[Rfam]
RNA sequence: AACUCGACCGGGUCCACCCCGCGGGUCACGACCAGGUAGUCGCGCAUCGCGAUGCCGUGCCGGUUCUC
Number, nucleotide and partner (000 for none) at each position: 001a000002a000003c000004u063005c062006g061007a000008c059009c000010g000011g000012g029013u028014c000015c000016a026017c025018c024019c000020c000021g000022c000023g000024g018025g017026u016027c000028a013029c012030g000031a000032c000033c000034a000035g056036g055037u054038a053039g000040u052041c051042g050043c049044g048045c000046a000047u000048c044049g043050c042051g041052a040053u038054g037055c036056c035057g000058u000059g008060c000061c006062g005063g004064u000065u000066c000067u000068c000